[Rfam]
RNA sequence: CAGAAAUCACAAGUUUUGCAGAAGCAUUCAUGAUGUGGCCUGUCAGAUUCCAGUGAAUCUCCAAAUUCUGCU
Numbered sequence: 001c002a003g004a005a006a007u008c009a010c011a012a013g014u015u016u017u018g019c020a021g022a023a024g025c026a027u028u029c030a031u032g033a034u035g036u037g038g039c040c041u042g043u044c045a046g047a048u049u050c051c052a053g054u055g056a057a058u059c060u061c062c063a064a065a066u067u068c069u070g071c072u
Stems, first nucleotide, its partner, number of pairs: 013039001014037001018071006024036003045060006

Shown here is a 72-nucleotide RNA from Alligator mississippiensis, a member of the family "Mammalian CPEB3 ribozyme". Pairs were carried over by alignment from the consensus structure, which is taken from published work. Its family is annotated with RNA nuclease activity in the Gene Ontology. The mammalian CPEB3 ribozyme is a self cleaving RNA located in the second intron of the CPEB3 gene which belongs to a family of genes regulating messenger RNA polyadenylation. This ribozyme is highly conserved and found only in mammals. The CPEB3 ribozyme is structurally and biochemically related to the human hepatitis delta virus (HDV) ribozyme and the HDV ribozyme is proposed to have arisen from the human transcriptome.